[Rfam]
Notes: Rfam assigns this 76-nucleotide RNA from Propithecus coquereli to the family "mir-320 microRNA precursor family".
RNA sequence: AGCCUGGGUGGCCUUGUCUUCCCAGUUCUUCCCAGAGUUGGGAAAAGCUGAGCUGAGAGGGUGAGGGGAAAAAAAA
Numbered sequence: 001a002g003c004c005u006g007g008g009u010g011g012c013c014u015u016g017u018c019u020u021c022c023c024a025g026u027u028c029u030u031c032c033c034a035g036a037g038u039u040g041g042g043a044a045a046a047g048c049u050g051a052g053c054u055g056a057g058a059g060g061g062u063g064a065g066g067g068g069a070a071a072a073a074a075a076a
Base pairs, nucleotide, nucleotide: 014059015058017056018055021052023050024049025048029044030043031042032041033040034039
The match comes from Rfam's covariance-model search (64 bits). For this family Rfam cites "Many novel mammalian microRNA candidates identified by extensive cloning and RAKE analysis" (Berezikov et al., Genome Res, 2006). Pairs were carried over by alignment from the consensus structure, which was predicted with RNAalifold. The family has 38 seed sequences and 659 matches in Rfam 15.1.